[Rfam]
RNA sequence: CUAUCUCGCUGGAGUCCCUUCUCCUCCUCCCAGGGCUCCCCAGCGACCGGCAAGCCUGCAGACUCCUCCUCCCACUGCAGGCUUUCUUCAGACACCCGCCGGUCCUCCCCCGGCGGGUGUCGUCG
Numbered sequence: 001c002u003a004u005c006u007c008g009c010u011g012g013a014g015u016c017c018c019u020u021c022u023c024c025u026c027c028u029c030c031c032a033g034g035g036c037u038c039c040c041c042a043g044c045g046a047c048c049g050g051c052a053a054g055c056c057u058g059c060a061g062a063c064u065c066c067u068c069c070u071c072c073c074a075c076u077g078c079a080g081g082c083u084u085u086c087u088u089c090a091g092a093c094a095c096c097c098g099c100c101g102g103u104c105c106u107c108c109c110c111c112g113g114c115g116g117g118u119g120u121c122g123u124c125g
Stems, first nucleotide, its partner, number of pairs: 007045003011039007052084010092120011
RNA: Alphaproteobacterial ar14
Organism: Aureimonas sp. AU20